The record is a 77-nucleotide sequence from Daphnia pulex, which matches "mir-71 microRNA precursor family" in Rfam. Rfam's curators put it in the seed alignment. Pairs were carried over by alignment from the consensus structure, which was predicted with RNAalifold. Its family is annotated with RISC complex and miRNA-mediated post-transcriptional gene silencing in the Gene Ontology. Lineage of the source: Eukaryota > Allotriocarida > Phyllopoda > Diplostraca > Daphnia. The family has 36 seed sequences and 372 matches in Rfam 15.1.
RNA sequence: UCGGCCUGAAAGACAUGGGUAGUGAGAUGUUGGCCUGGUAGUUCCUCACCUCUCACUACUUUGUCGUUCAUGUCGUG
Dot-bracket structure: .......(((.((((.(((.(((((((.(...................).))))))).))))))).)))........